[Rfam]
This 94-nucleotide sequence from Paenibacillus sp. OAS669 belongs to the Rfam family "c-di-GMP-I riboswitch aptamer". Rfam describes the family as follows. GEMM was predicted in a large-scale screen for bacterial structured RNA regulatory elements. It scores 78 bits against the family's covariance model.
RNA sequence: GUACGAUAAUAGCAAACCAGUCGAAAGGCUGGGACGCAAAGCUAAAGGGGCUAAGGGUUUGUUGUAAAAUGACCAAUGCCAGCCAGCUACCGAA
Numbered sequence: 001g002u003a004c005g006a007u008a009a010u011a012g013c014a015a016a017c018c019a020g021u022c023g024a025a026a027g028g029c030u031g032g033g034a035c036g037c038a039a040a041g042c043u044a045a046a047g048g049g050g051c052u053a054a055g056g057g058u059u060u061g062u063u064g065u066a067a068a069a070u071g072a073c074c075a076a077u078g079c080c081a082g083c084c085a086g087c088u089a090c091c092g093a094a
Stems, first nucleotide, its partner, number of pairs: 012037002017032006040088004047084002049080003056074004